Overview: Mammalian CPEB3 ribozyme: a 75-nucleotide RNA from Alligator mississippiensis. The family's consensus secondary structure is taken from published work. The match comes from Rfam's covariance-model search (58 bits).
[Rfam]
RNA sequence: AUCACAAAUCUGAGGCUACAGCAGAAGUGUUCAUGGCACAGCCUUGUCAGAUUCCAACGAAUCUGCAAUUCUGCU
Number, nucleotide and partner (000 for none) at each position: 001a000002u000003c000004a000005c000006a000007a000008a000009u000010c000011u000012g000013a000014g043015g042016c041017u040018a000019c000020a075021g074022c073023a072024g071025a070026a069027g039028u038029g037030u000031u000032c000033a000034u000035g000036g000037c029038a028039c027040a017041g016042c015043c014044u000045u000046g000047u000048c065049a064050g063051a062052u061053u060054c059055c000056a000057a000058c000059g054060a053061a052062u051063c050064u049065g048066c000067a000068a000069u026070u025071c024072u023073g022074c021075u020